[Rfam]
RNA sequence: GCUCAUUCGAGCGACUGGCGCCGUAGAGGUGGAGCACCACCGGGAAGCGACCGACGAGGCCGGCACCGCGCGCCUGGGUGUGGCCG
Numbered sequence: 001g002c003u004c005a006u007u008c009g010a011g012c013g014a015c016u017g018g019c020g021c022c023g024u025a026g027a028g029g030u031g032g033a034g035c036a037c038c039a040c041c042g043g044g045a046a047g048c049g050a051c052c053g054a055c056g057a058g059g060c061c062g063g064c065a066c067c068g069c070g071c072g073c074c075u076g077g078g079u080g081u082g083g084c085c086g
Base pairs, nucleotide, nucleotide: 003054004053007050008049011048012047015044016043017074018073019072020071021070029040030039031038032037063081064080065079066078067077
RNA: ZMP/ZTP riboswitch aptamer (pfl RNA motif)